RNA sequence: UCUAAAACUCAAGAUAUGGGUUGAACACUGAACAGUGUCUAGGUUGCAGGACAUAUUCGGACUUCUCCGUUAUUGCUAAGAUUUGGACUUCCAAACAGCAGAAUUGAAUCUUGCAUUCCAUGAAUAUUUUAGACCUAUGUCUUAGCUUUCUAGC
Numbered sequence: 001u002c003u004a005a006a007a008c009u010c011a012a013g014a015u016a017u018g019g020g021u022u023g024a025a026c027a028c029u030g031a032a033c034a035g036u037g038u039c040u041a042g043g044u045u046g047c048a049g050g051a052c053a054u055a056u057u058c059g060g061a062c063u064u065c066u067c068c069g070u071u072a073u074u075g076c077u078a079a080g081a082u083u084u085g086g087a088c089u090u091c092c093a094a095a096c097a098g099c100a101g102a103a104u105u106g107a108a109u110c111u112u113g114c115a116u117u118c119c120a121u122g123a124a125u126a127u128u129u130u131a132g133a134c135c136u137a138u139g140u141c142u143u144a145g146c147u148u149u150c151u152a153g154c
Stems, first nucleotide, its partner, number of pairs: 002153003006149002008145002011143010021132005027127001035121003042118002045115002048112004055104004060099001062098002069091001073087002